[Rfam]
Small nucleolar RNA Z122: an 88-nucleotide sequence from Kingdonia uniflora. By type it is a C/D-box small nucleolar RNA. The source organism's lineage runs through Eukaryota, Embryophyta, Spermatophyta, Ranunculales and Kingdonia. Its family is annotated with nucleolus and RNA processing in the Gene Ontology. The family's consensus secondary structure was predicted with PFOLD.

RNA sequence: AUUGGGAAAUGAUGCUAAAUUCAAUUUCAGAAGCUCAAAUAAUAGUUUUGUGCGCUGCUGAUAAUUUGCACGUCAGUCUGAUCCCAAA
Number, nucleotide and partner (000 for none) at each position: 001a000002u087003u086004g085005g084006g083007a082008a000009a000010u000011g000012a000013u000014g000015c000016u000017a000018a000019a000020u000021u000022c000023a000024a000025u000026u000027u000028c000029a000030g000031a000032a000033g000034c000035u000036c000037a000038a000039a000040u000041a000042a000043u000044a000045g000046u000047u000048u000049u000050g000051u000052g000053c000054g000055c000056u000057g000058c000059u000060g000061a000062u000063a000064a000065u000066u000067u000068g000069c000070a000071c000072g000073u000074c000075a000076g000077u000078c000079u000080g000081a000082u007083c006084c005085c004086a003087a002088a000